Annotation:
A member of the RNA family "MIR6145 microRNA precursor family" from Ceutorhynchus assimilis, 72 nucleotides long. Rfam 15.1 lists 52 matches to the family in 9 species. Rfam links the family to the GO terms RISC complex and miRNA-mediated post-transcriptional gene silencing. A search with the family's covariance model found it, with a score of 56 bits.
[Rfam]
RNA sequence: GUGUACAAAAAUGUUACACGUGGCGCAGGAAAGAAAUUUCUUUCCUGCGCCAGUGUAACAUUUUUGUACACC
Numbered sequence: 001g002u003g004u005a006c007a008a009a010a011a012u013g014u015u016a017c018a019c020g021u022g023g024c025g026c027a028g029g030a031a032a033g034a035a036a037u038u039u040c041u042u043u044c045c046u047g048c049g050c051c052a053g054u055g056u057a058a059c060a061u062u063u064u065u066g067u068a069c070a071c072c
Stems, first nucleotide, its partner, number of pairs: 001071008010062010022051010